[Rfam]
RNA sequence: UUGGAUGUGAUGAUACUUUCCCCAAAUGAUCGACGCUGAUUACACUAUGCUGGUGUUUUUAUCACAUUCUGUCUGAUCCAU
Numbered sequence: 001u002u003g004g005a006u007g008u009g010a011u012g013a014u015a016c017u018u019u020c021c022c023c024a025a026a027u028g029a030u031c032g033a034c035g036c037u038g039a040u041u042a043c044a045c046u047a048u049g050c051u052g053g054u055g056u057u058u059u060u061a062u063c064a065c066a067u068u069c070u071g072u073c074u075g076a077u078c079c080a081u
Base pairs, nucleotide, nucleotide: 002080003079004078005077
RNA: Small nucleolar RNA Z103
Organism: Cucumis melo